Shown here is a 91-nucleotide sequence from Canis lupus, a member of the family "mir-8799 microRNA precursor family". A search with the family's covariance model found it, with a score of 64 bits. Taxonomically the source falls in Canis lupus (Eukaryota, Dipnotetrapodomorpha, Laurasiatheria, Canis). The family is grouped with related families in Rfam's "mir-8791 microRNA precursor clan".
[Rfam]
Nucleotides: 091
Base pairs, nucleotide, nucleotide: 001091002090003089004088005087006086010083011082013079014078017077020073023070024069025068026067027064028063029062031059032058033057034056035055036054040052042051043050044049
Number, partner (000 for none) and nucleotide at each position: 001091g002090g003089g004088g005087g006086g007000a008000g009000c010083g011082c012000c013079g014078g015000a016000u017077c018000c019000u020073g021000c022000c023070u024069g025068u026067g027064u028063c029062c030000a031059u032058g033057g034056c035055g036054c037000c038000c039000u040052g041000u042051g043050c044049u045000c046000c047000u048000g049044g050043g051042c052040c053000u054036g055035u056034g057033c058032u059031a060000u061000u062029g063028g064027a065000a066000u067026c068025g069024u070023g071000c072000u073020c074000c075000c076000c077017g078014c079013c080000a081000c082011g083010c084000a085000g086006c087005c088004c089003c090002u091001u